[Rfam]
RNA: Group II catalytic intron D1-D4-5
RNA sequence: UUUAACUUUACAACGGAGGAUAGGAAUGAUGAAACCACGUUUUCGGAAACUAUCCCAUUAAGAUUCCUGCGUGCUUCAUGAAUGACAGUUCAUUGUGGUACGAAGCUCAGGUAAAGUCGGCAGAAGGAAGGCUAAAGCCACUCCUAUGGAGAAGGUACGUUAACUGAUAUGCCGGAUGGCUGAAAA
Numbered sequence: 001u002u003u004a005a006c007u008u009u010a011c012a013a014c015g016g017a018g019g020a021u022a023g024g025a026a027u028g029a030u031g032a033a034a035c036c037a038c039g040u041u042u043u044c045g046g047a048a049a050c051u052a053u054c055c056c057a058u059u060a061a062g063a064u065u066c067c068u069g070c071g072u073g074c075u076u077c078a079u080g081a082a083u084g085a086c087a088g089u090u091c092a093u094u095g096u097g098g099u100a101c102g103a104a105g106c107u108c109a110g111g112u113a114a115a116g117u118c119g120g121c122a123g124a125a126g127g128a129a130g131g132c133u134a135a136a137g138c139c140a141c142u143c144c145u146a147u148g149g150a151g152a153a154g155g156u157a158c159g160u161u162a163a164c165u166g167a168u169a170u171g172c173c174g175g176a177u178g179g180c181u182g183a184a185a186a
Base pairs, nucleotide, nucleotide: 018055019054020053021052022051023050031043032042033041034040056178057177058176059175066111067110068109069108070102071101072100073099074098075097077095078094079092080091081090082089118174119173120172121171122170126165127164130161131160132151133150139148140147